[Rfam]
Nucleotides: 137
Stems, first nucleotide, its partner, number of pairs: 003131001006128001012122002015119002019057003026050004033044003059074005077102008087092001103114002
Number, partner (000 for none) and nucleotide at each position: 001000a002000g003131g004000u005000u006128g007000a008000c009000g010000g011000u012122u013121c014000u015119c016118c017000g018000a019057g020056c021055u022000u023000c024000u025000u026050a027049c028048c029047c030000u031000a032000c033044g034043u035042c036000g037000a038000g039000a040000c041000a042035g043034a044033u045000a046000a047029g048028g049027g050026u051000u052000u053000u054000u055021a056020g057019c058000c059074g060073u061072g062071g063070c064000a065000a066000u067000a068000a069000c070063g071062c072061c073060a074059c075000c076000g077102g078101g079100g080099u081098g082097a083096g084095a085000a086000a087092a088000g089000a090000a091000a092087u093000g094000a095084u096083c097082u098081c099080a100079c101078c102077u103114c104113c105000c106000c107000u108000u109000a110000c111000u112000u113104g114103g115000a116000a117000a118016g119015g120000u121013g122012a123000u124000c125000a126000u127000g128006u129000c130000c131003c132000a133000a134000c135000u136000a137000c